[Rfam]
RNA sequence: CCUGGGUGAGGUAGUAGGUUGUAUAGUGGUUUAAUUGCAAAAUUUGCAGAUAUAAUGUCCACUGUGCAACUUGCUAACUUUCCCGG
Numbered sequence: 001c002c003u004g005g006g007u008g009a010g011g012u013a014g015u016a017g018g019u020u021g022u023a024u025a026g027u028g029g030u031u032u033a034a035u036u037g038c039a040a041a042a043u044u045u046g047c048a049g050a051u052a053u054a055a056u057g058u059c060c061a062c063u064g065u066g067c068a069a070c071u072u073g074c075u076a077a078c079u080u081u082c083c084c085g086g
Stems, first nucleotide, its partner, number of pairs: 001086002004083003008080003012076016035049004051057002
RNA: let-7 microRNA precursor family